[Rfam]
RNA sequence: UUAUAAGAAAAAGUUUGGUUUUUAGAUUCAUAGAAUGUUUGAUGUAUCUAGACAAUAAUACAAUCUAGAUACAUCAAACAUUCUAUGAAUCUAAAAAGCAAACUAUUUCUUAUAA
Numbered sequence: 001u002u003a004u005a006a007g008a009a010a011a012a013g014u015u016u017g018g019u020u021u022u023u024a025g026a027u028u029c030a031u032a033g034a035a036u037g038u039u040u041g042a043u044g045u046a047u048c049u050a051g052a053c054a055a056u057a058a059u060a061c062a063a064u065c066u067a068g069a070u071a072c073a074u075c076a077a078a079c080a081u082u083c084u085a086u087g088a089a090u091c092u093a094a095a096a097a098g099c100a101a102a103c104u105a106u107u108u109c110u111u112a113u114a115a
Stems, first nucleotide, its partner, number of pairs: 002114006009107002012104002015101003019097007027089018049067004